[Rfam]
RNA: Group II catalytic intron D1-D4-6
RNA sequence: AGAGUCAUACGUUGAAGGUCUAGCCAGCCACGACGGCCUCGAGUCAUGCGUGUACGUUCGUAAUGACGUGGGCGAAGCGUUGGGAGAGGUACGCAUGGGCCAGGUAUCGGGCUGCGAAAUCCAUUUUCCGCGCCGAAAGGCACGGGCUGAUCGGGGUGCCGAGGCACUGGGCGCUUGCCGAAAGCCAAGCCGGGAUUGCCGUAUUGGCAAGGCAGUCCCGGACCCCAGGCGGUCGGAGACCC
Dot-bracket structure: .........(((((..(((.[.[[..))).))))).((((...((((((((.((((((......)))))).)))...)).)))..))))..................((.(((((.....................................(((((((...((((.........))))....))....(((((((((((......]].]))))))))))))))))..)))))).)......